A member of the RNA family "serC leader" from Sphingomonas lenta, 53 nucleotides long. The source organism's lineage runs through Bacteria, Pseudomonadati, Pseudomonadota, Sphingomonadaceae and Sphingomonas. By type it is a cis-regulatory leader. A search with the family's covariance model found it, with a score of 44 bits. Rfam's curators write: This family is a putative regulatory RNA structure that is found upstream of the serC-serA operon in some alpha-proteobacteria. The final stem of the structure overlaps the ribosome binding site of the serC reading frame.

RNA sequence: CGACGGGCCACGCCGUCCCAACGCGGCGCGCGCUCUCUGCAAGGAGAGUUACA
Numbered sequence: 001c002g003a004c005g006g007g008c009c010a011c012g013c014c015g016u017c018c019c020a021a022c023g024c025g026g027c028g029c030g031c032g033c034u035c036u037c038u039g040c041a042a043g044g045a046g047a048g049u050u051a052c053a
Stems, first nucleotide, its partner, number of pairs: 011028006033048006